[Rfam]
RNA sequence: UCGUCGAUCCGCUCAUUCUGCCGGUUGUUAUGCUAUUAUCAGAUUAAGCAUCACAACCUCCUAGAAAGAGUAGAUCGAUUU
Numbered sequence: 001u002c003g004u005c006g007a008u009c010c011g012c013u014c015a016u017u018c019u020g021c022c023g024g025u026u027g028u029u030a031u032g033c034u035a036u037u038a039u040c041a042g043a044u045u046a047a048g049c050a051u052c053a054c055a056a057c058c059u060c061c062u063a064g065a066a067a068g069a070g071u072a073g074a075u076c077g078a079u080u081u
Base pairs, nucleotide, nucleotide: 008073012070013069014068016066017065018064019063020062023058024057026055027054028053030051031050032049
Rfam assigns this 81-nucleotide sequence from Caenorhabditis elegans to the family "mir-67 microRNA precursor family".
Pairs were carried over by alignment from the consensus structure, which was predicted with RNAalifold.
NCBI's taxonomy places the organism under Eukaryota, Opisthokonta, Eumetazoa, Rhabditidae, Caenorhabditis.
For this family Rfam cites "Identification of conserved microRNAs in Bombyx mori (silkworm) and regulation of fibroin L chain production by microRNAs in heterologous system" (Cao et al., Insect Biochem Mol Biol, 2008).